[Rfam]
RNA sequence: ACUGAGCUAUUACUUAUUACUUAUUACACUGUCUUGGCAUAACAUCAAUAAAGGCAUAAACAUCGCAAAUAAUGGUAAUAUAUAAAUUGGCUAUGAGGAUGGUUUUAGUACGUAGGCGUUGCGGAACUUCGGUUCAGAUAGAGCAAUGAAUCGUGCAUGCUAGGAAACUGAAGUGUUGACAGACCUAGUAUCUUUCGAUAGAUUUCCAUACCUCCGCGAUC
Numbered sequence: 001a002c003u004g005a006g007c008u009a010u011u012a013c014u015u016a017u018u019a020c021u022u023a024u025u026a027c028a029c030u031g032u033c034u035u036g037g038c039a040u041a042a043c044a045u046c047a048a049u050a051a052a053g054g055c056a057u058a059a060a061c062a063u064c065g066c067a068a069a070u071a072a073u074g075g076u077a078a079u080a081u082a083u084a085a086a087u088u089g090g091c092u093a094u095g096a097g098g099a100u101g102g103u104u105u106u107a108g109u110a111c112g113u114a115g116g117c118g119u120u121g122c123g124g125a126a127c128u129u130c131g132g133u134u135c136a137g138a139u140a141g142a143g144c145a146a147u148g149a150a151u152c153g154u155g156c157a158u159g160c161u162a163g164g165a166a167a168c169u170g171a172a173g174u175g176u177u178g179a180c181a182g183a184c185c186u187a188g189u190a191u192c193u194u195u196c197g198a199u200a201g202a203u204u205u206c207c208a209u210a211c212c213u214c215c216g217c218g219a220u221c
Stems, first nucleotide, its partner, number of pairs: 030056006062220005095214004100208003108156005117148006124135004158190006
Dot-bracket structure: .............................((((((...............)))))).....(((((............................((((.(((.....(((((....((((((.((((....)))).......))))))...))))).((((((.....................))))))...............)))..)))).))))).
Rfam assigns this 221-nucleotide RNA from Drosophila sechellia to the family "R2 RNA element".
Lineage of the source: Eukaryota > Metazoa > Panarthropoda > Eremoneura > Sophophora.
On this family, see Ruschak et al., RNA 2004: "Secondary structure models of the 3' untranslated regions of diverse R2 RNAs".